Shown here is an 89-nucleotide sequence from Brassica rapa, a member of the family "Small nucleolar RNA R21". The match comes from Rfam's covariance-model search (58 bits).
RNA sequence: AAUCCCAAAGACGAUUAAUAAUAGAAAAAUGUUAAAAGUAGUGACUGAUUUUUAUAUCUUUGAUACAUAAUCAAUUUUUUUGAGGGAUU
Numbered sequence: 001a002a003u004c005c006c007a008a009a010g011a012c013g014a015u016u017a018a019u020a021a022u023a024g025a026a027a028a029a030u031g032u033u034a035a036a037a038g039u040a041g042u043g044a045c046u047g048a049u050u051u052u053u054a055u056a057u058c059u060u061u062g063a064u065a066c067a068u069a070a071u072c073a074a075u076u077u078u079u080u081u082g083a084g085g086g087a088u089u
Base pairs, nucleotide, nucleotide: 001089002088003087004086005085006084